RNA sequence: UUCUUAUCAAGAGUGGCGGAGGGACUGGCCCAAAGAACCCCGACAACCAGCACGUGAAGGUGUAUGGUGUUAAUUCCAGGAGCACAAAUGUGUGUCCAAAAGAUGAGAA
Numbered sequence: 001u002u003c004u005u006a007u008c009a010a011g012a013g014u015g016g017c018g019g020a021g022g023g024a025c026u027g028g029c030c031c032a033a034a035g036a037a038c039c040c041c042g043a044c045a046a047c048c049a050g051c052a053c054g055u056g057a058a059g060g061u062g063u064a065u066g067g068u069g070u071u072a073a074u075u076c077c078a079g080g081a082g083c084a085c086a087a088a089u090g091u092g093u094g095u096c097c098a099a100a101a102g103a104u105g106a107g108a109a
Stems, first nucleotide, its partner, number of pairs: 001109008013041001015040002021031003025079004042071004047067002050063004075101001080097001082095004
Dot-bracket structure: ((((((((....[.[[....[[[.((((]]].......]]]((((.((.((((......))))..))))))...[))))(.((((......)))).)...]))))))))
Rfam assigns this 109-nucleotide RNA from Sporolactobacillus shoreae to the family "SAM riboswitch aptamer (S box leader)".
The organism belongs to Sporolactobacillus, within Bacteria.
A reference for the family is Grundy and Henkin (1998), "The S box regulon: a new global transcription termination control system for methionine and cysteine biosynthesis genes in gram-positive bacteria", Mol Microbiol.
Rfam describes the family as follows. The SAM riboswitch is found upstream of a number of genes which code for proteins involved in methionine or cysteine biosynthesis in Gram-positive bacteria.
The match comes from Rfam's covariance-model search (71 bits).